[Rfam]
Nucleotides: 136
Base pairs, nucleotide, nucleotide: 011122012121013120015118016117019057020056021055022054023053024052025051026050028048029047033044034043035042060074061073062072063071064070077102078101079100080099081098082097083096084095085094086093087092103113104112
Number, partner (000 for none) and nucleotide at each position: 001000u002000a003000g004000u005000u006000g007000c008000c009000a010000u011122a012121a013120c014000u015118c016117c017000g018000a019057g020056c021055u022054c023053u024052a025051u026050a027000a028048g029047c030000u031000a032000a033044g034043u035042c036000g037000a038000u039000a040000a041000a042035g043034a044033u045000a046000a047029g048028c049000g050026u051025a052024u053023a054022g055021a056020g057019c058000c059000a060074g061073u062072g063071a064070c065000a066000u067000g068000u069000u070064g071063u072062c073061a074060c075000a076000a077102g078101g079100g080099c081098a082097u083096a084095u085094u086093u087092g088000g089000a090000a091000a092087u093086g094085a095084g096083u097082a098081u099080g100079c101078c102077u103113c104112c105000c106000g107000u108000g109000u110000u111000u112104g113103g114000a115000a116000a117016g118015g119000u120013g121012u122011u123000c124000c125000g126000u127000g128000g129000c130000g131000c132000a133000a134000c135000a136000a

A member of the RNA family "Molybdenum/Tungsten riboswitch aptamer (Moco RNA motif)" from Vibrio galatheae, 136 nucleotides long. The source organism's lineage runs through Bacteria, Pseudomonadati, Gammaproteobacteria, Vibrionaceae and Vibrio. The base pairs follow the family's consensus structure, which is taken from published work. For this family Rfam cites "in molybdenum cofactor and tungsten cofactor metabolism" (Regulski et al., Mol Microbiol, 2008).